A member of the RNA family "SAM riboswitch aptamer (S box leader)" from Gracilibacillus kekensis, 99 nucleotides long. Taxonomically the source falls in Gracilibacillus (Bacteria, Bacilli, Caryophanales, Bacillaceae). The base pairs follow the family's consensus structure, which is taken from published work. About the family: The SAM riboswitch is found upstream of a number of genes which code for proteins involved in methionine or cysteine biosynthesis in Gram-positive bacteria.
[Rfam]
RNA sequence: AACUUAUCCAGAGAGAAGGAGGGAACUGGCCCUGAGAAUUCUCAGCAACAGGCGAAAGCACUGUGCUACAUCCAGCAAGAAAUUCUUGGCAGAUAAGAG
Number, nucleotide and partner (000 for none) at each position: 001a000002a000003c097004u096005u095006a094007u093008c092009c000010a000011g000012a000013g043014a042015g041016a040017a039018g000019g000020a000021g032022g031023g030024a000025a000026c075027u074028g073029g072030c023031c022032c021033u000034g000035a000036g000037a000038a000039u017040u016041c015042u014043c013044a067045g066046c065047a064048a000049c063050a062051g059052g000053c058054g000055a000056a000057a000058g053059c051060a000061c000062u050063g049064u047065g046066c045067u044068a000069c000070a000071u091072c029073c028074a027075g026076c088077a087078a086079g085080a084081a000082a000083u000084u080085c079086u078087u077088g076089g000090c000091a071092g008093a007094u006095a005096a004097g003098a000099g000